[Rfam]
RNA: Glycine riboswitch aptamer
RNA sequence: GGCCGAUGCGCGGGAGAGACCAUCAGCCUAAGGACUGAUGGCACCGAAGGAGCAACCGCCCCGGAAACUCUCAGGUAACAGGGACCGCGUACCGGCA
Numbered sequence: 001g002g003c004c005g006a007u008g009c010g011c012g013g014g015a016g017a018g019a020c021c022a023u024c025a026g027c028c029u030a031a032g033g034a035c036u037g038a039u040g041g042c043a044c045c046g047a048a049g050g051a052g053c054a055a056c057c058g059c060c061c062c063g064g065a066a067a068c069u070c071u072c073a074g075g076u077a078a079c080a081g082g083g084a085c086c087g088c089g090u091a092c093c094g095g096c097a
Stems, first nucleotide, its partner, number of pairs: 007091007020041006043076003046072002050070003056064002